[Rfam]
RNA sequence: UCUACUGGUCGCUCAGUAGUCAGUGUAGAUUCUGUCUCUUCAAUCAGCAGCUACAUCUGGCUACUGGGUCUCUGGUGGCAUCU
Numbered sequence: 001u002c003u004a005c006u007g008g009u010c011g012c013u014c015a016g017u018a019g020u021c022a023g024u025g026u027a028g029a030u031u032c033u034g035u036c037u038c039u040u041c042a043a044u045c046a047g048c049a050g051c052u053a054c055a056u057c058u059g060g061c062u063a064c065u066g067g068g069u070c071u072c073u074g075g076u077g078g079c080a081u082c083u
Base pairs, nucleotide, nucleotide: 013067014066015065016064017063018062020060021059022058023056024055025054026053027052028051032050033049034048035047

This 83-nucleotide sequence from Sphenodon punctatus belongs to the Rfam family "mir-221 microRNA precursor family". A reference for the family is Yao et al. (2008), "MicroRNA profile of Marek's disease virus-transformed T-cell line MSB-1: predominance of virus-encoded microRNAs", J Virol. The base pairs follow the family's consensus structure, which was predicted with RNAalifold. NCBI's taxonomy places the organism under Eukaryota, Amniota, Lepidosauria, Sphenodontia, Sphenodon. Gene Ontology terms of the family: RISC complex and miRNA-mediated post-transcriptional gene silencing.